[Rfam]
This 173-nucleotide sequence from Baia soyae belongs to the Rfam family "Group II catalytic intron D1-D4-3". The match comes from Rfam's covariance-model search (150 bits). From the family's description: Group II introns are found in rRNA, tRNA and mRNA of organelles in fungi, plants and protists, and also in mRNA in bacteria.

RNA sequence: UCCACCGUGAGGUGGAAUCUGAAGGAAGUCGGCGGCAAACCUCCGAUCUGAGGAACACGAAUCUCAUAUAAGGCUAAUAUUCGUUGGAUGAGUCUGCAUGACAAGACAAAGUCCUUGCUACCGAAGGCGAAUGAGAGUAGAUGAGACAGAUAGGUGGAGGGAAAGACUACGUU
Numbered sequence: 001u002c003c004a005c006c007g008u009g010a011g012g013u014g015g016a017a018u019c020u021g022a023a024g025g026a027a028g029u030c031g032g033c034g035g036c037a038a039a040c041c042u043c044c045g046a047u048c049u050g051a052g053g054a055a056c057a058c059g060a061a062u063c064u065c066a067u068a069u070a071a072g073g074c075u076a077a078u079a080u081u082c083g084u085u086g087g088a089u090g091a092g093u094c095u096g097c098a099u100g101a102c103a104a105g106a107c108a109a110a111g112u113c114c115u116u117g118c119u120a121c122c123g124a125a126g127g128c129g130a131a132u133g134a135g136a137g138u139a140g141a142u143g144a145g146a147c148a149g150a151u152a153g154g155u156g157g158a159g160g161g162a163a164a165g166a167c168u169a170c171g172u173u
Stems, first nucleotide, its partner, number of pairs: 001016006028173001030171002036165001040160006046151005062146006073138003079132006086114004092107004
Description
Lineage of the source: Bacteria > Bacillati > Bacillota > Caryophanales > Baia.